This 150-nucleotide RNA from Candidatus Regiella insecticola belongs to the Rfam family "sok antitoxin (CssrC)". Its family is annotated with mRNA binding in the Gene Ontology. Rfam's curators write: Also identified in Shigella as CssrC. The literature on the family includes a 2007 paper in Mol Microbiol by Kawano et al., "An antisense RNA controls synthesis of an SOS-induced toxin evolved from an antitoxin".
[Rfam]
RNA sequence: GGGUGCUUGAGACUUUCUGUCUUGAGCAAUCGUGACGGACAGAAAGACAAAAGCCCCAAGUUAUUUUUCAAUACAACCUGAGGCUCUCGUAUGAAUCAGCAACAUAAGAAUAGCCUCUUAACAGCAGUAAUGCAAUCGGAGGUUAAAAUG
Number, nucleotide and partner (000 for none) at each position: 001g057002g056003g055004u000005g054006c053007u052008u051009g000010a000011g048012a000013c046014u045015u044016u043017c042018u041019g040020u039021c038022u037023u000024g000025a000026g033027c032028a000029a000030u000031c000032g027033u026034g000035a000036c000037g022038g021039a020040c019041a018042g017043a016044a015045a014046g013047a000048c011049a000050a000051a008052a007053g006054c005055c003056c002057c001058a079059a000060g077061u076062u073063a072064u071065u070066u000067u000068u000069c000070a065071a064072u063073a062074c000075a000076a061077c060078c000079u058080g117081a116082g115083g114084c113085u000086c000087u109088c108089g000090u106091a105092u104093g103094a000095a000096u000097c000098a000099g000100c000101a000102a000103c093104a092105u091106a090107a000108g088109a087110a000111u000112a000113g084114c083115c082116u081117c080118u000119u000120a000121a000122c141123a000124g000125c138126a000127g000128u000129a000130a000131u000132g000133c000134a000135a000136u000137c000138g125139g000140a000141g122142g000143u000144u000145a000146a000147a000148a000149u000150g000

Rfam classes the family as an antitoxin RNA.